Rfam assigns this 62-nucleotide RNA from Peribacillus saganii to the family "Bacillaceae-1 RNA".
RNA sequence: UAACGGUGAACACAGCUAAGUUCGCCACGUCCUGUGGCAGCGUCAGUGUGACCCGCAUCCGC
Numbered sequence: 001u002a003a004c005g006g007u008g009a010a011c012a013c014a015g016c017u018a019a020g021u022u023c024g025c026c027a028c029g030u031c032c033u034g035u036g037g038c039a040g041c042g043u044c045a046g047u048g049u050g051a052c053c054c055g056c057a058u059c060c061g062c
Base pairs, nucleotide, nucleotide: 011048012047013046015044016042024038025037026036027035028034055062056061
The base pairs follow the family's consensus structure, which is taken from published work. NCBI's taxonomy places the organism under Bacteria, Bacillati, Bacillota, Caryophanales, Peribacillus.